[Rfam]
RNA sequence: UGGUGCCCAACGUGGGACCUGGACACAGGGGAAAAGGUGAGGAAGAAGGCACUAAAGUCGGCCGAAAUUAAAAGUGGAAGAAAAACUCCUCUGGACGCCGUGGGAGCCUGCCGCAUCAGAACCAGAGGUGAGUAACAGUGCCUGAUUAUGGGACAAGAAUUAAGCCAACAUCAGAUUAAUGUAGGACAGUUAAAAGAGGCUUUAAAAACACGAGGAGUAAAGGUUAAAAGUAAUGAUUUGUUUAGAUUUUUUGAUUUUGUAAAGGAUACCUGCCCUU
Number, nucleotide and partner (000 for none) at each position: 001u000002g000003g000004u000005g000006c031007c030008c029009a000010a000011c000012g026013u025014g024015g000016g000017a000018c000019c000020u000021g000022g000023a000024c014025a013026c012027a000028g000029g008030g007031g006032a000033a000034a000035a000036g000037g000038u046039g000040a000041g000042g000043a000044a000045g000046a038047a000048g000049g000050c000051a000052c000053u000054a000055a000056a000057g000058u000059c000060g000061g000062c000063c000064g000065a000066a000067a000068u000069u000070a000071a000072a000073a000074g000075u000076g000077g000078a000079a000080g000081a000082a000083a000084a000085a000086c130087u000088c128089c127090u126091c000092u000093g000094g122095a000096c119097g000098c000099c000100g114101u113102g112103g111104g000105a000106g000107c000108c000109u000110g000111c103112c102113g101114c100115a000116u000117c000118a000119g096120a000121a000122c094123c000124a000125g000126a090127g089128g088129u000130g086131a000132g000133u000134a000135a000136c000137a000138g154139u153140g000141c152142c151143u150144g149145a000146u000147u000148a000149u144150g143151g142152g141153a139154c138155a000156a000157g000158a000159a000160u000161u204162a203163a202164g200165c199166c198167a000168a000169c000170a000171u000172c000173a000174g000175a000176u000177u000178a000179a000180u000181g000182u000183a000184g000185g000186a000187c000188a000189g000190u000191u000192a000193a000194a000195a000196g000197a000198g166199g165200c164201u000202u163203u162204a161205a000206a000207a000208a000209c000210a000211c253212g252213a251214g250215g249216a248217g247218u246219a000220a000221a239222g238223g237224u236225u235226a234227a000228a000229a000230g000231u000232a000233a000234u226235g225236a224237u223238u222239u221240g000241u000242u000243u000244a000245g000246a218247u217248u216249u215250u214251u213252u212253g211254a000255u000256u000257u000258u000259g000260u000261a000262a277263a276264g275265g274266a000267u272268a000269c000270c000271u000272g267273c000274c265275c264276u263277u262
The record is a 277-nucleotide RNA sequence from Piliocolobus tephrosceles, which matches "Mason-Pfizer monkey virus packaging signal" in Rfam.
This family represents a group of sequences that are related to the Mason-Pfizer monkey virus (MPMV) packaging signal.
A search with the family's covariance model found it, with a score of 232 bits.
For this family Rfam cites "Secondary structure model of the Mason-Pfizer monkey virus 5' leader sequence: identification of a structural motif common to a variety of retroviruses" (Harrison et al., J Virol, 1995).